RNA sequence: CCGCCGGGACGACCCGGUGGAUUGAGUUUUUGCCUGGACGGCCAG
Numbered sequence: 001c002c003g004c005c006g007g008g009a010c011g012a013c014c015c016g017g018u019g020g021a022u023u024g025a026g027u028u029u030u031u032g033c034c035u036g037g038a039c040g041g042c043c044a045g
Stems, first nucleotide, its partner, number of pairs: 001020008034045004
Source information
The record is a 45-nucleotide RNA from Parvibaculum sedimenti, which matches "Guanidine-II riboswitch aptamer (mini-ykkC)" in Rfam. The literature on the family includes a 2007 paper in Nucleic Acids Res by Weinberg et al., "Identification of 22 candidate structured RNAs in bacteria using the CMfinder comparative genomics pipeline". Taxonomically the source falls in Parvibaculum (Bacteria, Pseudomonadati, Alphaproteobacteria, Hyphomicrobiales).